The record is a 171-nucleotide RNA, which matches "OTKONC RNA" in Rfam.

RNA sequence: AUAUUAGAAUAAUAAUUAUAUUAUAUAUAAUUAAGUAGUGCCGAGGGCUAAGGCCCGAACACGUUAAACGGUUAUUCGUGUACGAUCCUCUGCGAGUUGUUUAUCUUCACAGCAGAUUACGUUAGUAAGAGUUUGGAGCAUUUUUAAAAUGGGCCAACUUUGUUUAUGCUU
Numbered sequence: 001a002u003a004u005u006a007g008a009a010u011a012a013u014a015a016u017u018a019u020a021u022u023a024u025a026u027a028u029a030a031u032u033a034a035g036u037a038g039u040g041c042c043g044a045g046g047g048c049u050a051a052g053g054c055c056c057g058a059a060c061a062c063g064u065u066a067a068a069c070g071g072u073u074a075u076u077c078g079u080g081u082a083c084g085a086u087c088c089u090c091u092g093c094g095a096g097u098u099g100u101u102u103a104u105c106u107u108c109a110c111a112g113c114a115g116a117u118u119a120c121g122u123u124a125g126u127a128a129g130a131g132u133u134u135g136g137a138g139c140a141u142u143u144u145u146a147a148a149a150u151g152g153g154c155c156a157a158c159u160u161u162g163u164u165u166a167u168g169c170u171u
Stems, first nucleotide, its partner, number of pairs: 009075004013033008038062003045056004090115004117128004133157004

Background: It is annotated as a small RNA.